Annotation
The record is an 88-nucleotide RNA from Oryza sativa, which matches "mir-156 microRNA precursor family" in Rfam. NCBI's taxonomy places the organism under Eukaryota, Embryophyta, Oryzoideae, Oryzeae, Oryza sativa. This family represents the plant microRNA (miRNA) precursor mir-156. Rfam links the family to the GO terms RISC complex and miRNA-mediated post-transcriptional gene silencing.

[Rfam]
Nucleotides: 088
Stems, first nucleotide, its partner, number of pairs: 001088008010078012023065003
Number, partner (000 for none) and nucleotide at each position: 001088c002087u003086g004085a005084c006083a007082g008081a009000a010078g011077a012076g013075a014074g015073u016072g017071a018070g019069c020068a021067c022000a023065c024064a025063c026000g027000g028000u029000g030000c031000u032000u033000u034000c035000u036000u037000a038000g039000c040000a041000u042000g043000c044000a045000a046000g047000a048000g049000c050000c051000a052000u053000g054000c055000u056000g057000g058000g059000a060000g061000c062000u063025g064024u065023g066000c067021g068020u069019g070018c071017u072016c073015a074014c075013u076012c077011u078010c079000u080000a081008u082007c083006u084005g085004u086003c087002a088001g